[Rfam]
RNA sequence: CAUGCACCCAAACCCAAAGACCAUGUCCUGCCAGUGGUGUGGUUUUGUCUGGUGUGCUAACAGAAACCUGAUCCUUGUCGCCUUUCUCUGAUGCUGCUGUGCCGUAGAAAGUGAAUUCAAGGGUCAACAAAU
Numbered sequence: 001c002a003u004g005c006a007c008c009c010a011a012a013c014c015c016a017a018a019g020a021c022c023a024u025g026u027c028c029u030g031c032c033a034g035u036g037g038u039g040u041g042g043u044u045u046u047g048u049c050u051g052g053u054g055u056g057c058u059a060a061c062a063g064a065a066a067c068c069u070g071a072u073c074c075u076u077g078u079c080g081c082c083u084u085u086c087u088c089u090g091a092u093g094c095u096g097c098u099g100u101g102c103c104g105u106a107g108a109a110a111g112u113g114a115a116u117u118c119a120a121g122g123g124u125c126a127a128c129a130a131a132u
Stems, first nucleotide, its partner, number of pairs: 004057004009052001019044009070125007082111006089104002092101001
The record is a 132-nucleotide sequence from Etheostoma spectabile, which matches "Small nucleolar RNA SNORA68" in Rfam. The family has 26 seed sequences and 1,079 matches in Rfam 15.1. Taxonomically the source falls in Oligocephalus (Eukaryota, Opisthokonta, Actinopteri, Eupercaria). Pairs were carried over by alignment from the consensus structure, which was predicted with PFOLD. Rfam's curators write: U68 is a member of the H/ACA class of small nucleolar RNAs (snoRNAs) which act as guides in the the modification of uridines to pseudouridines.